[Rfam]
RNA sequence: UAACUCCCUUUUUUUGUGUCUUGUGAUGAAGCUUCAUAGGGCAGAUUCUGAGCUGAGAAAUAACAUUUCUCUCCACUGAUAGUCUCUGUAUGCCAUCUGAAGACACUACAUGCUGC
Numbered sequence: 001u002a003a004c005u006c007c008c009u010u011u012u013u014u015u016g017u018g019u020c021u022u023g024u025g026a027u028g029a030a031g032c033u034u035c036a037u038a039g040g041g042c043a044g045a046u047u048c049u050g051a052g053c054u055g056a057g058a059a060a061u062a063a064c065a066u067u068u069c070u071c072u073c074c075a076c077u078g079a080u081a082g083u084c085u086c087u088g089u090a091u092g093c094c095a096u097c098u099g100a101a102g103a104c105a106c107u108a109c110a111u112g113c114u115g116c
Base pairs, nucleotide, nucleotide: 014108016106017105018104019103020102021101031096035092036091037090039085040084041083044080047079048078050076052074055071056070057069058068059067060066